[Rfam]
RNA sequence: CUCCGAAAAAAGCAAAACCGGGAAAACCCGGCGACGCAAAGCCAUGAGUCUAAAGCUGAACUGAGUCAGGACUGUCAGGCUACCGAU
Numbered sequence: 001c002u003c004c005g006a007a008a009a010a011a012g013c014a015a016a017a018c019c020g021g022g023a024a025a026a027c028c029c030g031g032c033g034a035c036g037c038a039a040a041g042c043c044a045u046g047a048g049u050c051u052a053a054a055g056c057u058g059a060a061c062u063g064a065g066u067c068a069g070g071a072c073u074g075u076c077a078g079g080c081u082a083c084c085g086a087u
Base pairs, nucleotide, nucleotide: 012037013036018031019030020029021028022027040081041080042079043078045077046076047075048072049071050070055066056065057064

A member of the RNA family "c-di-GMP-I riboswitch aptamer" from an Anaerolineales bacterium, 87 nucleotides long. Pairs were carried over by alignment from the consensus structure, which is taken from published work. Its family is annotated with cyclic-di-GMP binding in the Gene Ontology.